[Rfam]
RNA sequence: GGCUCUGUGAUUAUAUGCCCCAUUUGGGCAAUAUACGCUAUUCUGAAAUCAUUCUUACAUGAGCUGAAAUCUGAAGAAAUUAUGAGAGCU
Numbered sequence: 001g002g003c004u005c006u007g008u009g010a011u012u013a014u015a016u017g018c019c020c021c022a023u024u025u026g027g028g029c030a031a032u033a034u035a036c037g038c039u040a041u042u043c044u045g046a047a048a049u050c051a052u053u054c055u056u057a058c059a060u061g062a063g064c065u066g067a068a069a070u071c072u073g074a075a076g077a078a079a080u081u082a083u084g085a086g087a088g089c090u
Stems, first nucleotide, its partner, number of pairs: 001090005
RNA: Small nucleolar RNA U54